[Rfam]
RNA sequence: AGCCAUGCCCCUUGGCAAAACACAAAGCAAUGCCUCAUUCGUGUUGGUAGUCCCGUUUUUUUCGGGGUCGAAUACUCGGAGGUGAAAUAAGCAAAA
Numbered sequence: 001a002g003c004c005a006u007g008c009c010c011c012u013u014g015g016c017a018a019a020a021c022a023c024a025a026a027g028c029a030a031u032g033c034c035u036c037a038u039u040c041g042u043g044u045u046g047g048u049a050g051u052c053c054c055g056u057u058u059u060u061u062u063c064g065g066g067g068u069c070g071a072a073u074a075c076u077c078g079g080a081g082g083u084g085a086a087a088u089a090a091g092c093a094a095a096a
Base pairs, nucleotide, nucleotide: 006017007016008015009014043075044074050069053065054064055063
Dot-bracket structure: .....((((....)))).........................((.....(..(((.......)))...)....)).....................
The record is a 96-nucleotide RNA sequence, which matches "RT-17 RNA" in Rfam. It is one of the family's seed sequences. It is annotated as a small RNA.